[Rfam]
The family of this 153-nucleotide RNA sequence from Escherichia fergusonii is "sok antitoxin (CssrC)". For this family Rfam cites "Nucleotide sequence and transcriptional analysis of a third function (Flm) involved in F-plasmid maintenance" (Loh et al., Gene, 1988). Rfam 15.1 lists 305 matches to the family in 167 species. From the family's description: Also identified in Shigella as CssrC. Lineage of the source: Bacteria > Gammaproteobacteria > Enterobacteriaceae > Escherichia > Escherichia fergusonii. The family's RNA type in Rfam is antitoxin RNA.
Nucleotides: 153
Stems, first nucleotide, its partner, number of pairs: 001058003005055004013047010026034001059078002062075001063073002066070001079117005086109003090106004121144002125140002
Number, partner (000 for none) and nucleotide at each position: 001058g002057g003056g004000u005055g006054c007053u008052u009000g010000a011000g012000a013047c014046u015045g016044u017043u018042u019041g020040u021039c022038u023000c024000a025000g026034g027000u028000a029000u030000u031000c032000a033000c034026c035000g036000a037000a038022a039021g040020g041019c042018a043017g044016a045015c046014a047013g048000a049000g050000a051000a052008a053007a054006g055005c056003c057002c058001c059078a060077c061000c062075u063073g064072a065000c066070u067000a068000u069000a070066a071000a072064u073063c074000a075062a076000a077060g078059u079117g080116a081115g082114g083113c084000u085000g086109c087108c088107u089000c090106u091105a092104u093103g094000c095000u096000u097000c098000a099000a100000c101000a102000a103093c104092a105091u106090a107088a108087g109086g110000u111000u112000a113083g114082c115081c116080u117079c118000u119000u120000a121144c122143u123000c124000g125140u126139u127000g128000g129000a130000a131000a132000u133000c134000a135000a136000c137000a138000c139126a140125g141000g142000a143122g144121g145000c146000u147000g148000g149000g150000a151000a152000u153000g